[Rfam]
RNA sequence: GGUUCACGGAGGUGUUGGUGACUGCCAAUAAUGUUUUUUGAUCUAUGUCUUAUUGAAUUAGGGAACCUACUAUGGCGGGUCGCGGUAGACUGAGCUUGUACUCAGAAACUAUAGAUCUUCUAGAACGGUACCCACCUGGUUUUGACCAGGUCUAAAGCUGAGGUAAGACGGCACUGCGGUGAACCC
Dot-bracket structure: .((((((.(.(((((..((...............(((..(((((................(((.((((.(...((.((((....((...(((((......)))))..)).....)))).)).).).))).)))..............)))))..)))..........)).))))).).))))))..